[Rfam]
Nucleotides: 191
Base pairs, nucleotide, nucleotide: 001041002040003039004038005037006036043172044171045170046169047168048167053079054078080157081156082155088130089129090128091127133151134150135149136148
Number, partner (000 for none) and nucleotide at each position: 001041c002040c003039u004038g005037u006036c007000a008000g009000c010000a011000g012000a013000c014000c015000g016000g017000a018000u019000c020000c021000g022000u023000u024000c025000a026000a027000g028000a029000u030000u031000u032000u033000c034000c035000c036006g037005a038004c039003a040002g041001g042000g043172g044171c045170g046169g047168a048167g049000g050000a051000a052000c053079c054078a055000c056000u057000u058000u059000u060000u061000g062000g063000c064000g065000c066000u067000u068000g069000g070000g071000g072000g073000c074000g075000c076000c077000u078054u079053g080157g081156g082155g083000u084000g085000a086000a087000g088130u089129u090128c091127g092000u093000a094000c095000g096000g097000c098000c099000g100000c101000a102000g103000a104000g105000a106000u107000c108000g109000c110000u111000g112000a113000a114000u115000c116000c117000u118000g119000c120000c121000c122000g123000c124000c125000g126000g127091c128090g129089a130088a131000c132000c133151g134150a135149g136148c137000a138000c139000a140000a141000c142000u143000c144000u145000c146000u147000g148136g149135c150134u151133c152000g153000a154000a155082u156081c157080c158000g159000a160000c161000a162000g163000c164000u165000a166000a167048c168047u169046u170045c171044g172043c173000c174000g175000g176000c177000g178000c179000c180000a181000c182000g183000a184000g185000a186000g187000g188000a189000u190000u191000c

The family of this 191-nucleotide RNA from Crystallibacter crystallopoietes is "c-di-AMP riboswitch aptamer (ydaO/yuaA leader)". Rfam links the family to the GO terms cyclic-di-AMP binding and regulation of gene expression. NCBI's taxonomy places the organism under Bacteria, Bacillati, Actinomycetota, Micrococcales, Crystallibacter crystallopoietes. It scores 58 bits against the family's covariance model. This family represents a conserved RNA structure found upstream of the ydaO and yuaA genes in Bacillus subtilis and related genes in other bacteria. The ydaO/yuaA element is thought to act as a genetic 'off' switch for the ydaO and yuaA genes in its native state.